Shown here is a 45-nucleotide sequence from Castellaniella defragrans, a member of the family "Guanidine-II riboswitch aptamer (mini-ykkC)". Its family is annotated with regulation of gene expression in the Gene Ontology. Pairs were carried over by alignment from the consensus structure, which is taken from published work.
RNA sequence: AAGCAGGGACGACUUUGCUUCUCGUACUUCAUCGGGGACGGCCCC
Numbered sequence: 001a002a003g004c005a006g007g008g009a010c011g012a013c014u015u016u017g018c019u020u021c022u023c024g025u026a027c028u029u030c031a032u033c034g035g036g037g038a039c040g041g042c043c044c045c
Stems, first nucleotide, its partner, number of pairs: 001020008034045004

Simpler in structure and has fewer highly conserved nucleotide positions than the ykkC-yxkD leader. Taxonomically the source falls in Castellaniella defragrans (Bacteria, Pseudomonadati, Betaproteobacteria, Castellaniella).